[Rfam]
RNA: Bacterial RNase P class A
RNA sequence: GUCACCGGCCGGAUGGUCGCGAAACAGGGGAACGAGCCUUCAUGGCCACGCCCGUGUUCCGAGGAAAGUCCGGGCUCCAUAGGGCAGAUCGCCAGGUAACGCCUGGGCGCAUACGGCGUGAGCUGCAUGCGACGGACAGUGCAACAGAAAGCAAACCGCCGUCUUCGCGAGAAGGCGGUAAGGGUGAAAGGGUGGGGUAAGAGCCCACCGCGCGUCCGGCAACGGGCGUGGCUCGGUAAACCCCGGUCGGAGCAAGGCCAAAUAGGCGGUGAGAGACGGCCCGUCUCGACAGGAUGCUUUCGGGCAUCGAGCCGCGGGUAGGCUGCUGGAGCGUGUUGGUGACGACACGCCGAGAGGAAUGACCAUCCGGUGCACCUCGGUGUACCGACAGAACCCGGCUUACAGGCCGGUGACAUCC
Numbered sequence: 001g002u003c004a005c006c007g008g009c010c011g012g013a014u015g016g017u018c019g020c021g022a023a024a025c026a027g028g029g030g031a032a033c034g035a036g037c038c039u040u041c042a043u044g045g046c047c048a049c050g051c052c053c054g055u056g057u058u059c060c061g062a063g064g065a066a067a068g069u070c071c072g073g074g075c076u077c078c079a080u081a082g083g084g085c086a087g088a089u090c091g092c093c094a095g096g097u098a099a100c101g102c103c104u105g106g107g108c109g110c111a112u113a114c115g116g117c118g119u120g121a122g123c124u125g126c127a128u129g130c131g132a133c134g135g136a137c138a139g140u141g142c143a144a145c146a147g148a149a150a151g152c153a154a155a156c157c158g159c160c161g162u163c164u165u166c167g168c169g170a171g172a173a174g175g176c177g178g179u180a181a182g183g184g185u186g187a188a189a190g191g192g193u194g195g196g197g198u199a200a201g202a203g204c205c206c207a208c209c210g211c212g213c214g215u216c217c218g219g220c221a222a223c224g225g226g227c228g229u230g231g232c233u234c235g236g237u238a239a240a241c242c243c244c245g246g247u248c249g250g251a252g253c254a255a256g257g258c259c260a261a262a263u264a265g266g267c268g269g270u271g272a273g274a275g276a277c278g279g280c281c282c283g284u285c286u287c288g289a290c291a292g293g294a295u296g297c298u299u300u301c302g303g304g305c306a307u308c309g310a311g312c313c314g315c316g317g318g319u320a321g322g323c324u325g326c327u328g329g330a331g332c333g334u335g336u337u338g339g340u341g342a343c344g345a346c347a348c349g350c351c352g353a354g355a356g357g358a359a360u361g362a363c364c365a366u367c368c369g370g371u372g373c374a375c376c377u378c379g380g381u382g383u384a385c386c387g388a389c390a391g392a393a394c395c396c397g398g399c400u401u402a403c404a405g406g407c408c409g410g411u412g413a414c415a416u417c418c
Base pairs, nucleotide, nucleotide: 001414002413003412004411005410006409007408008407009406010405011403012367013366014365015364016363017362018361020061021060023058024057025056026055028053029052030051066401067400068399070398071397072396073395074394075252076251077250078249083301084300087248088247089246090245091244092106093105094104095103096102107133108131109130110129111128134243135242139241140240141237142236156183157182158179159178160177161176162175163174164173165172166171191209192208193207194206195205196204210232211230212229213228214227215226216225217224218223256324257323258322259321266315267314268313269312270311293308294307295306296305297304331350332349333348334347335346336345337344338343